[Rfam]
RNA sequence: CCAUGGGCUGGCGCCCAUGGCUACAUGACGCCGCCGCUUCGCGGCU
Numbered sequence: 001c002c003a004u005g006g007g008c009u010g011g012c013g014c015c016c017a018u019g020g021c022u023a024c025a026u027g028a029c030g031c032c033g034c035c036g037c038u039u040c041g042c043g044g045c046u
Base pairs, nucleotide, nucleotide: 001020002019003018004017005016006015007014008013033045034044035043036042037041